Overview: Rfam assigns this 77-nucleotide RNA sequence from Cycloclasticus sp. P1 to the family "SAH (S-adenosyl-L-homocysteine) riboswitch aptamer". The organism belongs to Cycloclasticus, within Bacteria.
RNA sequence: UUGAAUAAGGAACGCUGCGACAGGAUCUUCCUGCUAGGCUUAUUCAAGCAGUCAAAUUUUAACUGCGUUCAUUAUUA
Number, nucleotide and partner (000 for none) at each position: 001u000002u046003g045004a044005a043006u042007a041008a040009g000010g000011a000012a000013c000014g000015c000016u000017g000018c000019g000020a000021c033022a032023g031024g030025a029026u000027c000028u000029u025030c024031c023032u022033g021034c000035u000036a000037g000038g000039c000040u008041u007042a006043u005044u004045c003046a002047a000048g000049c000050a000051g000052u000053c000054a000055a000056a000057u000058u000059u000060u000061a000062a000063c000064u000065g000066c000067g000068u000069u000070c000071a000072u000073u000074a000075u000076u000077a000